[Rfam]
RNA: L31-Actinobacteria ribosomal protein leader
RNA sequence: CCGGUCCCGGUUCACGUCCCACGAGCAGUCCGAUGCGGGCGACCCGGCGGCC
Numbered sequence: 001c002c003g004g005u006c007c008c009g010g011u012u013c014a015c016g017u018c019c020c021a022c023g024a025g026c027a028g029u030c031c032g033a034u035g036c037g038g039g040c041g042a043c044c045c046g047g048c049g050g051c052c
Stems, first nucleotide, its partner, number of pairs: 003052003007047004015041005020035002